[Rfam]
RNA sequence: GGACGCGGACGGCCGCGUGCCCUUGCGUAUCGAGCGGCGGGGACGACCUCG
Numbered sequence: 001g002g003a004c005g006c007g008g009a010c011g012g013c014c015g016c017g018u019g020c021c022c023u024u025g026c027g028u029a030u031c032g033a034g035c036g037g038c039g040g041g042g043a044c045g046a047c048c049u050c051g
Base pairs, nucleotide, nucleotide: 001020003018004017005016006015007014008013038051039050040049041048042047